Notes:
Shown here is a 413-nucleotide part of an RNA from Thyridium curvatum, a member of the family "Eukaryotic large subunit ribosomal RNA".
RNA sequence: UGACCUCGGAUCAGGUAGGAAUACCCGCUGAACUUAAGCAUAUCAAUAAGCGGAGGAAAAGAAACCAACAGGGAUUGCCCUAGUAACGGCGAGUGAAGCGGCAACAGCUCAAAUUUGAAAUCUGGCCUCGGCCCGAGUUGUAAUUUGUAGAGGAUGCUUUUGGUGCGGUGCCUUCUGAGUUCCCUGGAACGGGACGCCUUAGAGGGUGAGAGCCCCGUAAAGUUGGACACCAAGCCUAUGUAAAGCUCCUUCGACGAGUCGAGUAGUUUGGGAAUGCUGCUCAAAAUGGGAGGUAAAUUUCUUCUAAAGCUAAAUACCGGCCAGAGACCGAUAGCGCACAAGUAGAGUGAUCGAAAGAUGAAAAGCACUUUGAAAAGAGGGUUAAAAAGUACGUGAAAUUGUUGAAAGGGAAG
Numbered sequence: 001u002g003a004c005c006u007c008g009g010a011u012c013a014g015g016u017a018g019g020a021a022u023a024c025c026c027g028c029u030g031a032a033c034u035u036a037a038g039c040a041u042a043u044c045a046a047u048a049a050g051c052g053g054a055g056g057a058a059a060a061g062a063a064a065c066c067a068a069c070a071g072g073g074a075u076u077g078c079c080c081u082a083g084u085a086a087c088g089g090c091g092a093g094u095g096a097a098g099c100g101g102c103a104a105c106a107g108c109u110c111a112a113a114u115u116u117g118a119a120a121u122c123u124g125g126c127c128u129c130g131g132c133c134c135g136a137g138u139u140g141u142a143a144u145u146u147g148u149a150g151a152g153g154a155u156g157c158u159u160u161u162g163g164u165g166c167g168g169u170g171c172c173u174u175c176u177g178a179g180u181u182c183c184c185u186g187g188a189a190c191g192g193g194a195c196g197c198c199u200u201a202g203a204g205g206g207u208g209a210g211a212g213c214c215c216c217g218u219a220a221a222g223u224u225g226g227a228c229a230c231c232a233a234g235c236c237u238a239u240g241u242a243a244a245g246c247u248c249c250u251u252c253g254a255c256g257a258g259u260c261g262a263g264u265a266g267u268u269u270g271g272g273a274a275u276g277c278u279g280c281u282c283a284a285a286a287u288g289g290g291a292g293g294u295a296a297a298u299u300u301c302u303u304c305u306a307a308a309g310c311u312a313a314a315u316a317c318c319g320g321c322c323a324g325a326g327a328c329c330g331a332u333a334g335c336g337c338a339c340a341a342g343u344a345g346a347g348u349g350a351u352c353g354a355a356a357g358a359u360g361a362a363a364a365g366c367a368c369u370u371u372g373a374a375a376a377g378a379g380g381g382u383u384a385a386a387a388a389g390u391a392c393g394u395g396a397a398a399u400u401g402u403u404g405a406a407a408g409g410g411a412a413g
Stems, first nucleotide, its partner, number of pairs: 024055001025053005035042002065072002076103004086094002106311004112145004118139002121136002124133003150252002152249003157245004162236003167231002171226002175222002179195001181194004198202001205215002261282007288305005345352002368379004
A search with the family's covariance model found it, with a score of 2803 bits.